The family of this 71-nucleotide RNA sequence from Crocodylus porosus is "Mammalian CPEB3 ribozyme". A search with the family's covariance model found it, with a score of 43 bits. Lineage of the source: Eukaryota > Eumetazoa > Bilateria > Sarcopterygii > Crocodylus.
RNA sequence: UGAGUUUGAGGCCAUAGCAGAAGCACUCAUGGUGUGGCCUGUCAGAUUCCAAGAGCUCUGUGAAUUCUUCU
Numbered sequence: 001u002g003a004g005u006u007u008g009a010g011g012c013c014a015u016a017g018c019a020g021a022a023g024c025a026c027u028c029a030u031g032g033u034g035u036g037g038c039c040u041g042u043c044a045g046a047u048u049c050c051a052a053g054a055g056c057u058c059u060g061u062g063a064a065u066u067c068u069u070c071u
Base pairs, nucleotide, nucleotide: 010039011038012037013036016071017070019068020067021066022065023035024034025033043060044059045058046057048055